[Rfam]
RNA: mir-219 microRNA precursor family
RNA sequence: UGAUUGUCCAAACGCAAUUCUUGAGCAAAAUCAAACAAAACCCCAAGAAUUGUGCAUGGACAUCUGU
Numbered sequence: 001u002g003a004u005u006g007u008c009c010a011a012a013c014g015c016a017a018u019u020c021u022u023g024a025g026c027a028a029a030a031u032c033a034a035a036c037a038a039a040a041c042c043c044c045a046a047g048a049a050u051u052g053u054g055c056a057u058g059g060a061c062a063u064c065u066g067u
Stems, first nucleotide, its partner, number of pairs: 002064003006061005013054011